This 32-nucleotide sequence from Flavobacterium aciduliphilum belongs to the Rfam family "DUF805b RNA". By type it is a cis-regulatory element.
[Rfam]
RNA sequence: AAGGCGGUGCCGAAAAGCCAAUAGAGUAGGGG
Number, nucleotide and partner (000 for none) at each position: 001a000002a000003g019004g018005c017006g000007g000008u000009g000010c030011c029012g000013a000014a000015a000016a000017g005018c004019c003020a000021a000022u000023a000024g000025a000026g000027u000028a000029g011030g010031g000032g000
The source organism's lineage runs through Bacteria, Pseudomonadati, Bacteroidota, Flavobacteriaceae and Flavobacterium.